[Rfam]
RNA sequence: ACCGGGGGACGACCUCCAUUGUCAUUCACUUGAACGGGACGACCCGU
Number, nucleotide and partner (000 for none) at each position: 001a020002c000003c000004g017005g016006g015007g014008g013009a000010c000011g000012a000013c008014c007015u006016c005017c004018a000019u000020u001021g000022u000023c000024a000025u000026u000027c000028a000029c000030u000031u000032g000033a000034a047035c046036g045037g044038g043039a000040c000041g000042a000043c038044c037045c036046g035047u034
A member of the RNA family "Guanidine-II riboswitch aptamer (mini-ykkC)" from Effrenium voratum, 47 nucleotides long. From the family's description: Simpler in structure and has fewer highly conserved nucleotide positions than the ykkC-yxkD leader. Despite this each of its two stem-loop structures directly bind free guanidine.